[Rfam]
TPP riboswitch aptamer (THI element): a 95-nucleotide RNA sequence from Glutamicibacter creatinolyticus. The match comes from Rfam's covariance-model search (67 bits). Pairs were carried over by alignment from the consensus structure, which is taken from published work.

RNA sequence: ACGAGUGACACGGGGUGUCGGCGCCGCCGACUGAGAUGACACCCGUCGAACCUGAACUAGUUCAAACUAGCGGAGGGAUGUCGCACAUGACCCUG
Numbered sequence: 001a002c003g004a005g006u007g008a009c010a011c012g013g014g015g016u017g018u019c020g021g022c023g024c025c026g027c028c029g030a031c032u033g034a035g036a037u038g039a040c041a042c043c044c045g046u047c048g049a050a051c052c053u054g055a056a057c058u059a060g061u062u063c064a065a066a067c068u069a070g071c072g073g074a075g076g077g078a079u080g081u082c083g084c085a086c087a088u089g090a091c092c093c094u095g
Stems, first nucleotide, its partner, number of pairs: 006083005011045004016039001017031005051076003057070004